[Rfam]
RNA sequence: GUCGCCGCCGCCUCGGGCUCGCUUGGUGCAGAUCGGGACCCUCAGCCCGCCCCGACGGGCCGGAUCCCGCCUUGCACCAAGUGAAUCGGAGCCGGCGCAGCGA
Numbered sequence: 001g002u003c004g005c006c007g008c009c010g011c012c013u014c015g016g017g018c019u020c021g022c023u024u025g026g027u028g029c030a031g032a033u034c035g036g037g038a039c040c041c042u043c044a045g046c047c048c049g050c051c052c053c054g055a056c057g058g059g060c061c062g063g064a065u066c067c068c069g070c071c072u073u074g075c076a077c078c079a080a081g082u083g084a085a086u087c088g089g090a091g092c093c094g095g096c097g098c099a100g101c102g103a
Base pairs, nucleotide, nucleotide: 013090014089017086019084020083023080024079025078026077027076028075029074030073031072034069035068036067037066038065040063041062

MIR168 microRNA precursor family: a 103-nucleotide RNA from Aegilops tauschii.
The literature on the family includes a 2002 paper in Genes Dev by Reinhart et al., "MicroRNAs in plants".
Taxonomically the source falls in Aegilops tauschii (Eukaryota, Streptophytina, Spermatophyta, commelinids).